Shown here is a 453-nucleotide RNA from Scheffersomyces stipitis, a member of the family "RNase MRP". Taxonomically the source falls in Scheffersomyces stipitis (Eukaryota, Opisthokonta, saccharomyceta, Pichiomycetes). It is one of the family's seed sequences. RNase MRP is an enzymatically active ribonucleoprotein with two distinct roles in eukaryotes. In mitochondria it plays a direct role in the initiation of mitochondrial DNA replication. The family's consensus secondary structure is taken from published work. By type it is a ribozyme.
RNA sequence: ACGUCCAUGGUCAAAGAUUUGUUUUCGAGGCUCACAAAAGGAUCCUCGGAUCUUCAUAUGCCUUGGGGAAAGUCUCCUGCCACAUAAGCGGAAACGCAGUGGAUUUACCAAUCCACUUGAGAGGAUUGUGGAAUAAAAUCAGAAGUUGUCAAUUCCAGCGAUGUUAAAGUUGUGAUUAUAUCUACAGUGGAGUUGCUAAUUCGUCUAUGGAUCUUGUCUCUUUCGAGCUCUGGCAAUGAAAGUGUUCUGAUUGGUCAGAAUGAGUUGUUGAAGUUGUUCCUUUUAUUUUUUUCACAAUCACCUCUCAUUGUCCCAGUUGGUCUUUAUCCCAUCUGGUGAUUUCCUUUCAGAGGAACUGUUCGGCAAUGGGAAUUUGUUUCCUAAACGAUAGUUAUAACAAGUGAUCAACAACUGUUGAUUAACCCAAUGGAGCUUACUCUUGACCCAUGGACG
Dot-bracket structure: .(((((...(((((..((((((..(((((((.......((((((....)))))).....)))))))...[[[.[[[[..........(((....))).........................................................................................................................................................................................................................((.(((........))).)).((....((.((.....(((....)))...)).))..)).......................)))))).((((((....)))))).........]]]]]]]....)))))....)))))

The family has 66 seed sequences and 3,510 matches in Rfam 15.1.